[Rfam]
Rfam assigns this 349-nucleotide part of an RNA from Acholeplasma oculi to the family "Bacterial small subunit ribosomal RNA".
A reference for the family is Yusupov et al. (2001), "Crystal structure of the ribosome at 5.5 A resolution", Science.
The family is grouped with related families in Rfam's "SSU clan".
RNA sequence: GGCGUAAAGGGUGCGUAGGUGGUUAAAUAAGUUUCUGGUGUAAGUGCAGUGCUCAACGCUGUGAUGCUAGGAAAACUGUUUAGCUAGAGUGAGACAGAGGCAAGUGGAAUUCCAUGUGUAGCGGUAAAAUGCGUAAAUAUAUGGAGGAACACCAGUGGCGAAGGCGGCUUGCUGGGUCUAUACUGACACUGAUGCACGAAAGCGUGGGGAGCAAACAGGAUUAGAUACCCUGGUAGUCCACGCCGUAAACGAUGAGAACUAAGUGUUGGCCCUCAGGGUCAGUGCUGCAGUUAACGCAUUAAGUUCUCCGCCUGAGUAGUACGUACGCAAGUAUGAAACUCAAAGGAAU
Number, nucleotide and partner (000 for none) at each position: 001g312002g311003c310004g000005u000006a000007a000008a000009g309010g000011g197012u196013g195014c194015g000016u191017a000018g190019g189020u188021g000022g084023u083024u082025a081026a080027a079028u078029a000030a077031g076032u073033u072034u071035c070036u069037g068038g067039u066040g065041u000042a000043a000044g000045u063046g062047c061048a060049g059050u058051g057052c000053u000054c000055a000056a000057c051058g050059c049060u048061g047062u046063g045064a000065u040066g039067c038068u037069a036070g035071g034072a033073a032074a000075a000076c031077u030078g028079u027080u026081u025082a024083g023084c022085u000086a000087g000088a184089g183090u182091g000092a179093g178094a177095c176096a000097g000098a000099g173100g172101c171102a170103a169104g168105u167106g150107g000108a000109a000110u146111u145112c144113c143114a142115u141116g140117u139118g000119u000120a000121g132122c131123g130124g000125u000126a000127a000128a000129a000130u123131g122132c121133g000134u000135a000136a000137a000138u000139a117140u116141a115142u114143g113144g112145a111146g110147g000148a000149a000150c106151a000152c000153c000154a000155g000156u000157g000158g165159c164160g000161a000162a000163g000164g159165c158166g000167g105168c104169u103170u102171g101172c100173u099174g000175g000176g095177u094178c093179u092180a000181u000182a090183c089184u088185g000186a000187c000188a020189c019190u018191g016192a000193u000194g014195c013196a012197c011198g000199a000200a000201a000202g243203c242204g241205u240206g239207g238208g000209g000210a000211g237212c236213a000214a000215a000216c232217a231218g230219g229220a000221u000222u000223a000224g000225a000226u000227a000228c000229c219230c218231u217232g216233g000234u000235a000236g212237u211238c207239c206240a205241c204242g203243c202244c000245g000246u000247a000248a000249a000250c000251g000252a000253u000254g308255a307256g306257a305258a304259c303260u000261a000262a286263g285264u284265g283266u282267u281268g280269g279270c278271c277272c276273u000274c000275a000276g272277g271278g270279u269280c268281a267282g266283u265284g264285c263286u262287g000288c000289a000290g297291u296292u000293a000294a000295c000296g291297c290298a000299u000300u000301a000302a000303g259304u258305u257306c256307u255308c254309c009310g003311c002312c001313u000314g341315a340316g339317u000318a000319g000320u000321a000322c000323g334324u333325a332326c331327g000328c000329a000330a000331g326332u325333a324334u323335g000336a000337a000338a000339c316340u315341c314342a000343a000344a000345g000346g000347a000348a000349u000